[Rfam]
RNA sequence: AGAAUCCGCGCUAAGUUACUUCGUAUAAUCCCAAUGAUAUGGUUUGGGAGUUUCUACCAAGAGCCUUAAACUCUUGAUUAUGAAGUCUGUACUUUAUGCG
Number, nucleotide and partner (000 for none) at each position: 001a000002g000003a000004a000005u000006c000007c000008g000009c000010g000011c000012u000013a000014a000015g000016u000017u000018a086019c085020u084021u083022c082023g081024u080025a079026u000027a000028a000029u049030c048031c047032c046033a045034a044035u000036g000037a000038u000039a000040u000041g000042g000043u000044u034045u033046g032047g031048g030049a029050g000051u000052u000053u000054c000055u000056a000057c000058c076059a075060a074061g073062a072063g071064c000065c000066u000067u000068a000069a000070a000071c063072u062073c061074u060075u059076g058077a000078u000079u025080a024081u023082g022083a021084a020085g019086u018087c000088u000089g000090u000091a000092c000093u000094u000095u000096a000097u000098g000099c000100g000

Rfam assigns this 100-nucleotide sequence from Shewanella gelidii to the family "Purine riboswitch aptamer". Gene Ontology term of the family: purine nucleobase biosynthetic process. Riboswitches are metabolite binding domains within certain messenger RNAs that serve as precision sensors for their corresponding targets. Allosteric rearrangement of mRNA structure is mediated by ligand binding, and this results in modulation of gene expression. A class of riboswitches that selectively recognises guanine and becomes saturated at concentrations as low as 5 nM. In Bacillus subtilis, this mRNA motif is located on at least five separate transcriptional units that together encode 17 genes that are mostly involved in purine transport and purine nucleotide biosynthesis. It has also been shown that some members of this family are specific for adenine instead. Hence this family are termed purine riboswitches. The base pairs follow the family's consensus structure, which is taken from published work.